[Rfam]
RNA sequence: AAAAUGGGGCAAGAGAGAGUAACGGUGUCUCUGAGUCCUUGAUGAACCGGCGAGGGAAAUCAAUCUGGCCGAGAUAUCGUUUCAGUCGUUCUUUGUUUUGGUUUACGAUCUGAUUGUUGCUCGUCCACAU
Numbered sequence: 001a002a003a004a005u006g007g008g009g010c011a012a013g014a015g016a017g018a019g020u021a022a023c024g025g026u027g028u029c030u031c032u033g034a035g036u037c038c039u040u041g042a043u044g045a046a047c048c049g050g051c052g053a054g055g056g057a058a059a060u061c062a063a064u065c066u067g068g069c070c071g072a073g074a075u076a077u078c079g080u081u082u083c084a085g086u087c088g089u090u091c092u093u094u095g096u097u098u099u100g101g102u103u104u105a106c107g108a109u110c111u112g113a114u115u116g117u118u119g120c121u122c123g124u125c126c127a128c129a130u
Base pairs, nucleotide, nucleotide: 006039007038008037009036010035013031014030015029016028017026067126068125070123071122072121073120076114077113078112079111085109086108087107088106089105093101094100
This 130-nucleotide RNA sequence belongs to the Rfam family "Small nucleolar RNA snoR111". By type it is an H/ACA-box small nucleolar RNA. The family has 6 seed sequences and 533 matches in Rfam 15.1. It is one of the family's seed sequences. A reference for the family is Marker et al. (2002), "Experimental RNomics: identification of 140 candidates for small non-messenger RNAs in the plant Arabidopsis thaliana", Curr Biol. The family's consensus secondary structure was predicted with WAR.